[Rfam]
RNA: Lysine riboswitch aptamer
Organism: Pseudoflavonifractor sp. An176
RNA sequence: ACCACUGAUAGAGGCGCGGUGCCAAUGGGUGCCCCACACAAGCCUGGAAGGGCGUGGGGUGCGAGGUGUCACCGCCGAAGGGCAAAGGGGCUUCCACCCGCUUUGUGCCUGGGUCGUCGGGAAAUACCCGGCGGACUGUCACACCCCCUGGUGUGAAGCGCUAUCAUGGCA
Numbered sequence: 001a002c003c004a005c006u007g008a009u010a011g012a013g014g015c016g017c018g019g020u021g022c023c024a025a026u027g028g029g030u031g032c033c034c035c036a037c038a039c040a041a042g043c044c045u046g047g048a049a050g051g052g053c054g055u056g057g058g059g060u061g062c063g064a065g066g067u068g069u070c071a072c073c074g075c076c077g078a079a080g081g082g083c084a085a086a087g088g089g090g091c092u093u094c095c096a097c098c099c100g101c102u103u104u105g106u107g108c109c110u111g112g113g114u115c116g117u118c119g120g121g122a123a124a125u126a127c128c129c130g131g132c133g134g135a136c137u138g139u140c141a142c143a144c145c146c147c148c149u150g151g152u153g154u155g156a157a158g159c160g161c162u163a164u165c166a167u168g169g170c171a
Stems, first nucleotide, its partner, number of pairs: 006166006016075006023068002033059003079110003082106006089099002111137002114134008139156007